[Rfam]
RNA sequence: AGGGAUGUUAUGAAUGCCGUAGGAGACGUGUUCACAUCACGGCCCCUAUGAGAUUCCAAUGAAUCUGCUAAAUUCUGCU
Numbered sequence: 001a002g003g004g005a006u007g008u009u010a011u012g013a014a015u016g017c018c019g020u021a022g023g024a025g026a027c028g029u030g031u032u033c034a035c036a037u038c039a040c041g042g043c044c045c046c047u048a049u050g051a052g053a054u055u056c057c058a059a060u061g062a063a064u065c066u067g068c069u070a071a072a073u074u075c076u077g078c079u
Base pairs, nucleotide, nucleotide: 016043017042018041021079022078024076025075026074028040029039030038051066052065053064054063055062056061
RNA: Mammalian CPEB3 ribozyme